RNA sequence: UCUUGUGACACGGGGUGCUCUCCUUCCCGGGGAGCUGAGAUCAAACCCGUCGAACCUGAUCCGGCUAAUACCGGCGAAGGAAUCGUCACGGUUGGUUUUG
Number, nucleotide and partner (000 for none) at each position: 001u000002c000003u000004u000005g000006u088007g087008a086009c085010a000011c049012g048013g047014g046015g000016u043017g035018c034019u033020c032021u031022c030023c029024u000025u000026c000027c000028c000029g023030g022031g021032g020033a019034g018035c017036u000037g000038a000039g000040a000041u000042c000043a016044a000045a000046c014047c013048c012049g011050u000051c000052g000053a000054a000055c080056c079057u078058g000059a000060u000061c074062c073063g072064g071065c000066u000067a000068a000069u000070a000071c064072c063073g062074g061075c000076g000077a000078a057079g056080g055081a000082a000083u000084c000085g009086u008087c007088a006089c000090g000091g000092u000093u000094g000095g000096u000097u000098u000099u000100g000